[Rfam]
RNA: RT-13 RNA
RNA sequence: GCGUGCGUUCGGGGGAUGCCCGGCCUAGGCCGGAGCCCAGGGUCAGGGCCAGUCCCCCGAACUCUGC
Numbered sequence: 001g002c003g004u005g006c007g008u009u010c011g012g013g014g015g016a017u018g019c020c021c022g023g024c025c026u027a028g029g030c031c032g033g034a035g036c037c038c039a040g041g042g043u044c045a046g047g048g049c050c051a052g053u054c055c056c057c058c059g060a061a062c063u064c065u066g067c
Stems, first nucleotide, its partner, number of pairs: 007062011020033005035049004